This 108-nucleotide RNA from Alkaliphilus sp. belongs to the Rfam family "SAM riboswitch aptamer (S box leader)".
It scores 92 bits against the family's covariance model.
RNA sequence: UUCUUAUCAAGAGAGGCGGAGGGACUGGCCCUACGAUGCCCGGCAACCUGCAUUUAAUUAUGCUGUAAGGUGCCAAAUCCAACAGAACUUAGUUCUGGUAGAUAAGAG
Numbered sequence: 001u002u003c004u005u006a007u008c009a010a011g012a013g014a015g016g017c018g019g020a021g022g023g024a025c026u027g028g029c030c031c032u033a034c035g036a037u038g039c040c041c042g043g044c045a046a047c048c049u050g051c052a053u054u055u056a057a058u059u060a061u062g063c064u065g066u067a068a069g070g071u072g073c074c075a076a077a078u079c080c081a082a083c084a085g086a087a088c089u090u091a092g093u094u095c096u097g098g099u100a101g102a103u104a105a106g107a108g
Base pairs, nucleotide, nucleotide: 001108002107003106004105005104006103007102008101013041015040016039017038021031022030023029026081027080028079042074043073044072045071047070048069049067050066051065052064078100083097084096085095086094087093088092
Dot-bracket structure: ((((((((....(.(((...(((..[[[)))......))))((((.((((((...........)))).))))))...(]]].((((((...))))))..)))))))))